The family of this 90-nucleotide RNA from Streptomyces triculaminicus is "sodF sRNA". The organism belongs to Streptomyces, within Bacteria. The match comes from Rfam's covariance-model search (59 bits). On this family, see Kim et al., Nucleic Acids Res 2014: "Inverse regulation of Fe- and Ni-containing SOD genes by a Fur family regulator Nur through small RNA processed from 3'UTR of the sodF mRNA".

[Rfam]
RNA sequence: CCGCCUGCCUCGUGAUCGUCUUCUCACCCUUCACCCGGCAGGCGUAACGGCGGGGCCCCCGCGCGGUCCGAUACCGCGCCGGGGGCCUCG
Dot-bracket structure: .((((((((..((((..(.........)..))))..))))))))......((((((((((((((((.......))))).)))))))))))